[Rfam]
A member of the RNA family "mir-155 microRNA precursor family" from Pogona vitticeps, 64 nucleotides long. The family's consensus secondary structure was predicted with RNAalifold. A search with the family's covariance model found it, with a score of 79 bits.
RNA sequence: UUGUUAAUGCUAAUCGUGAUAGGGGUUUUAUCUUGCACCGACUCCUACAUGUUAGCAUUAAUUG
Numbered sequence: 001u002u003g004u005u006a007a008u009g010c011u012a013a014u015c016g017u018g019a020u021a022g023g024g025g026u027u028u029u030a031u032c033u034u035g036c037a038c039c040g041a042c043u044c045c046u047a048c049a050u051g052u053u054a055g056c057a058u059u060a061a062u063u064g
Stems, first nucleotide, its partner, number of pairs: 004061011020047004025042003
Dot-bracket structure: ...(((((((((((.....((((.(((............))).))))...)))))))))))...
Record summary:
Gene Ontology terms of the family: miRNA-mediated post-transcriptional gene silencing and RISC complex. Lineage of the source: Eukaryota > Metazoa > Gnathostomata > Sauropsida > Pogona.